[Rfam]
RNA sequence: GAGCCACAUCCAGAGUUGGGGCAAUGCCCAACGCCAACCUGCCGAUCCGGGCAAGGUGGCGCUUCCGCAGGGAAGGAUGUGGCCGUUCCGGCAACCAAACGGAUCUUC
Numbered sequence: 001g002a003g004c005c006a007c008a009u010c011c012a013g014a015g016u017u018g019g020g021g022c023a024a025u026g027c028c029c030a031a032c033g034c035c036a037a038c039c040u041g042c043c044g045a046u047c048c049g050g051g052c053a054a055g056g057u058g059g060c061g062c063u064u065c066c067g068c069a070g071g072g073a074a075g076g077a078u079g080u081g082g083c084c085g086u087u088c089c090g091g092c093a094a095c096c097a098a099a100c101g102g103a104u105c106u107u108c
Base pairs, nucleotide, nucleotide: 006080007079008078009077010076015032016031017030018029019028020027033060034059035058038056039055040054041052042051043050045104046103047102048101049100082092083091084090085089
This 108-nucleotide RNA sequence from Roseospira marina belongs to the Rfam family "SAM-I/IV (S-adenosyl methionine) riboswitch aptamer".
Pairs were carried over by alignment from the consensus structure, which is taken from published work.
Rfam 15.1 lists 567 matches to the family in 508 species.